Source information: Rfam assigns this 82-nucleotide RNA sequence from Gouania willdenowi to the family "mir-221 microRNA precursor family". Taxonomically the source falls in Gouania (Eukaryota, Teleostei, Percomorphaceae, Gobiesocoidei). Rfam links the family to the GO terms RISC complex and miRNA-mediated post-transcriptional gene silencing. For this family Rfam cites "MicroRNA profile of Marek's disease virus-transformed T-cell line MSB-1: predominance of virus-encoded microRNAs" (Yao et al., J Virol, 2008).
[Rfam]
RNA sequence: UGAGUCCUGAACCUGGCAUACAGUGUAGAAAUCUGUGUGUCAGUCUACAGCUACAUUGUCUGCUGGGUUUCAGGCCUGCCUU
Numbered sequence: 001u002g003a004g005u006c007c008u009g010a011a012c013c014u015g016g017c018a019u020a021c022a023g024u025g026u027a028g029a030a031a032u033c034u035g036u037g038u039g040u041c042a043g044u045c046u047a048c049a050g051c052u053a054c055a056u057u058g059u060c061u062g063c064u065g066g067g068u069u070u071c072a073g074g075c076c077u078g079c080c081u082u
Stems, first nucleotide, its partner, number of pairs: 013066006020059009033050004